[Rfam]
Nucleotides: 600
Stems, first nucleotide, its partner, number of pairs: 001474002003471003007468007015458002019421005024315001026313008034304002040055004064299007076122003082116003087104007106113002124288002127286004133282002135277003138273001140271002145184006151160003164175003190265004195233007205222002209220003236256002239253001240251004319373007332361002336355002341350003380411001385406007427450007477573001479570001482566002487560004492555003497550005505542004513535001515533004521528002575598010
Number, partner (000 for none) and nucleotide at each position: 001474u002473g003471a004470c005469g006000g007468g008467g009466g010465c011464c012463c013462g014000c015458a016457c017000a018000a019421g020420c021419g022418g023417u024315g025000g026313a027312g028311c029310a030309u031308g032307u033306g034304g035303u036000u037000u038000a039000a040055u041054u042053c043052g044000a045000u046000g047000a048000u049000a050000c051000g052043c053042g054041a055040g056000g057000a058000a059000c060000c061000u062000u063000a064299c065298c066297a067296g068295g069294g070293c071000u072000u073000a074000a075000a076122u077121g078120c079000a080000u081000u082116a083115u084114g085000a086000c087104a088103g089102g090101g091100g092099u093098g094000g095000a096000g097000a098093c099092a100091c101090c102089c103088u104087u105000u106113u107112c108000u109000u110000c111000g112107g113106a114084c115083a116082u117000u118000u119000u120078g121077c122076a123000a124288g125287g126000u127286g128285c129284u130283g131000c132000a133282u134281g135277g136276u137275u138273g139000u140271c141270g142000u143000c144000a145184g146183c147182u148181c149180g150179u151160g152159c153158c154000g155000u156000g157000a158153g159152g160151u161000g162000u163000c164175a165174g166173g167000u168000u169000a170000a171000g172000u173166c174165c175164u176000a177000u178000a179150a180149c181148g182147a183146g184145c185000g186000c187000a188000a189000c190265c191264c192263c193262u194000g195233u196232u197231g198230u199229u200228a201227g202000u203000u204000g205222c206221c207000a208000g209220c210219g211218a212000g213000u214000a215000a216000u217000g218211u219210c220209g221206g222205g223000a224000a225000c226000u227201c228200u229199a230198g231197c232196a233195a234000g235000a236256c237255u238000g239253c240251c241250g242249g243248u244000g245000c246000a247000a248243a249242c250241c251240g252000c253239g254000a255237g256236g257000a258000a259000g260000g261000u262193g263192g264191g265190g266000a267000u268000g269000a270141c271140g272000u273138c274000a275137a276136a277135u278000c279000a280000u281134c282133a283130c284129g285128g286127c287125c288124c289000u290000u291000a292000c293070g294069c295068c296067c297066u298065g299064g300000g301000c302000c303035a304034c305000a306033c307032a308031c309030g310029u311028g312027c313026u314000a315024c316000a317000a318000u319373g320372g321371c322370a323369g324368g325367u326000a327000c328000a329000g330000c331000a332361a333360g334000c335000a336355g337354c338000c339000a340000c341350u342349g343348g344000g345000c346000g347000a348343c349342c350341a351000g352000g353000a354337g355336c356000g357000a358000a359000u360333c361332u362000g363000u364000a365000a366000a367325g368324c369323c370322u371321g372320u373319c374000a375000c376000a377000g378000u379000u380411c381000g382000g383000a384000u385406c386405g387404g388403a389402g390401u391400c392000u393000g394000c395000a396000a397000c398000u399000c400391g401390a402389c403388u404387c405386c406385g407000u408000g409000a410000a411380g412000c413000u414000g415000g416000a417023a418022u419021c420020g421019c422000u423000a424000g425000u426000a427450a428449u429448c430447g431446c432445a433444u434000a435000u436000c437000a438000g439000c440000c441000a442000u443000g444433a445432u446431g447430c448429g449428g450427u451000g452000a453000a454000u455000a456000c457016g458015u459000u460000c461000c462013c463012g464011g465010g466009c467008c468007u469005u470004g471003u472000a473002c474001a475000c476000a477573c478000c479570g480000c481000c482566c483565g484000u485000c486000a487560a488559g489558c490557c491000a492555u493554g494553g495000a496000a497550g498549c499548u500547g501546g502000g503000a504000g505542u506541g507540c508539c509000u510000g511000a512000a513535g514000u515533c516532c517531g518530u519000c520000g521528c522527c523000g524000u525000a526000a527522g528521g529000a530518g531517c532516g533515g534000c535513c536000u537000a538000g539508g540507g541506u542505a543000a544000g545000a546501c547500c548499g549498g550497u551000a552000a553494c554493u555492g556000g557490g558489g559488c560487u561000a562000a563000g564000u565483c566482g567000u568000a569000a570479c571000a572000a573477g574000g575598u576597a577596g578595c579594c580593g581592u582591a583590c584589c585000g586000g587000a588000a589584g590583g591582u592581g593580c594579g595578g596577c597576u598575g599000g600000a